[Rfam]
Rfam assigns this 355-nucleotide sequence from Paracoccus aminophilus to the family "Alphaproteobacteria transfer-messenger RNA". Bacterial tmRNA, also known as 10Sa RNA or SsrA, is named for its dual tRNA and mRNA-like properties. Its role is to liberate the mRNA from a stalled ribosome. To accomplish this part of the tmRNA is used as a reading frame that ends in a translation stop signal. The broken mRNA is replaced in the ribosome by the tmRNA and translation of the tmRNA leads to addition of a proteolysis tag to the incomplete protein enabling recognition by a protease. Recently a number of permuted tmRNA genes have been found encoded in two parts. tmRNAs have been identified in eubacteria and some chloroplasts but are absent from archaeal and eukaryote nuclear genomes. On this family, see Williams and Bartel, RNA 1996: "Phylogenetic analysis of tmRNA secondary structure". The organism belongs to Paracoccus aminophilus, within Bacteria.
RNA sequence: GAUCUUGCAGCCGCGAAAACUCCGUCCUAUAUUCAACCUGUUCGGGCUUGCUCGGACUAUGGGCAUAAACGCGCAUGUAAUAAGCGGAUCGGACCCGGGGGCGGUACCCGGCGACUCCACCAAAACUCCCUCGUUGGGGGCAAAUGGGGUCGAAACAGGAUCGACGAACGUCUAAAGAUGUAAGCUUUGUCUCGGUGAGCUACCACCGUCAUCGGUGCAAAUUGUACAGUUGCCAACGACAACCGUGCUCCGGUCGCUCUGGCUGCGUAAGCAGUUCGAGAGAUCGAAACUUAAGUCCUUGCGCUUAGCCGCGUAAGGCGGGGCCCGCAGGAGCCUGGCAACAGAAUCCUGCACC
Numbered sequence: 001g002a003u004c005u006u007g008c009a010g011c012c013g014c015g016a017a018a019a020c021u022c023c024g025u026c027c028u029a030u031a032u033u034c035a036a037c038c039u040g041u042u043c044g045g046g047c048u049u050g051c052u053c054g055g056a057c058u059a060u061g062g063g064c065a066u067a068a069a070c071g072c073g074c075a076u077g078u079a080a081u082a083a084g085c086g087g088a089u090c091g092g093a094c095c096c097g098g099g100g101g102c103g104g105u106a107c108c109c110g111g112c113g114a115c116u117c118c119a120c121c122a123a124a125a126c127u128c129c130c131u132c133g134u135u136g137g138g139g140g141c142a143a144a145u146g147g148g149g150u151c152g153a154a155a156c157a158g159g160a161u162c163g164a165c166g167a168a169c170g171u172c173u174a175a176a177g178a179u180g181u182a183a184g185c186u187u188u189g190u191c192u193c194g195g196u197g198a199g200c201u202a203c204c205a206c207c208g209u210c211a212u213c214g215g216u217g218c219a220a221a222u223u224g225u226a227c228a229g230u231u232g233c234c235a236a237c238g239a240c241a242a243c244c245g246u247g248c249u250c251c252g253g254u255c256g257c258u259c260u261g262g263c264u265g266c267g268u269a270a271g272c273a274g275u276u277c278g279a280g281a282g283a284u285c286g287a288a289a290c291u292u293a294a295g296u297c298c299u300u301g302c303g304c305u306u307a308g309c310c311g312c313g314u315a316a317g318g319c320g321g322g323g324c325c326c327g328c329a330g331g332a333g334c335c336u337g338g339c340a341a342c343a344g345a346a347u348c349c350u351g352c353a354c355c
Stems, first nucleotide, its partner, number of pairs: 040057007061192005071185002073181004085170002089167003095111005112152007193208004199218002202216003321336004327352006

The family's RNA type in Rfam is non-coding RNA gene.